[Rfam]
RNA sequence: UUGACAGAAGAGAGUGAGCACACAUGGUGCUUCCUUGCGUGGAAUAUUGGAAACAAAGAAGGAAAUUAACCAUGCUUGGGCUAUGUGUGCUCACUACUCUUUCUGUCAG
Numbered sequence: 001u002u003g004a005c006a007g008a009a010g011a012g013a014g015u016g017a018g019c020a021c022a023c024a025u026g027g028u029g030c031u032u033c034c035u036u037g038c039g040u041g042g043a044a045u046a047u048u049g050g051a052a053a054c055a056a057a058g059a060a061g062g063a064a065a066u067u068a069a070c071c072a073u074g075c076u077u078g079g080g081c082u083a084u085g086u087g088u089g090c091u092c093a094c095u096a097c098u099c100u101u102u103c104u105g106u107c108a109g
Stems, first nucleotide, its partner, number of pairs: 001109009010099003013095009023085006
Rfam assigns this 109-nucleotide sequence from Carex littledalei to the family "mir-156 microRNA precursor family". The organism belongs to Carex subgen. Euthyceras, within Eukaryota. The literature on the family includes a 2002 paper in Genes Dev by Reinhart et al., "MicroRNAs in plants".